This 159-nucleotide RNA from Gossypium laxum belongs to the Rfam family "U2 spliceosomal RNA". From the family's description: U2 is a small nuclear RNA (snRNA) component of the spliceosome (involved in pre-mRNA splicing). Complementary binding between U2 snRNA (in an area lying towards the 5' end but 3' to hairpin I) and the branchpoint sequence (BPS) of the intron results the bulging out of an unpaired adenosine, on the BPS, which initiates a nucleophilic attack at the intronic 5' splice site, thus starting the first of two transesterification reactions that mediate splicing. NCBI's taxonomy places the organism under Eukaryota, rosids, Malvaceae, Malvoideae, Gossypium. Gene Ontology terms of the family: U2 snRNP, pre-mRNA branch point binding and mRNA branch site recognition.
RNA sequence: UAUCUGUUCUUAUCAGUUUAAUAUCUGAUACGUGGGCCAUUGGCUCACAUGAUAUUAAAUUUAUUUUUUGAGGGGGAGGGUCCACCACAGUAGCUUGCUACUGGGACUCUCAAGCGUCGCCCAAGCGUUGCACUGUUGCUCGGGCCUGGCGCACCCCAC
Numbered sequence: 001u002a003u004c005u006g007u008u009c010u011u012a013u014c015a016g017u018u019u020a021a022u023a024u025c026u027g028a029u030a031c032g033u034g035g036g037c038c039a040u041u042g043g044c045u046c047a048c049a050u051g052a053u054a055u056u057a058a059a060u061u062u063a064u065u066u067u068u069u070g071a072g073g074g075g076g077a078g079g080g081u082c083c084a085c086c087a088c089a090g091u092a093g094c095u096u097g098c099u100a101c102u103g104g105g106a107c108u109c110u111c112a113a114g115c116g117u118c119g120c121c122c123a124a125g126c127g128u129u130g131c132a133c134u135g136u137u138g139c140u141c142g143g144g145c146c147u148g149g150c151g152c153a154c155c156c157c158a159c
Base pairs, nucleotide, nucleotide: 011030012029013028014027015026016025032048033047034046035045036044037043038042076111077110078109079108080107081106082105083104090101091100092099093098114152115151116150117149118148119147121143122142124140125139126138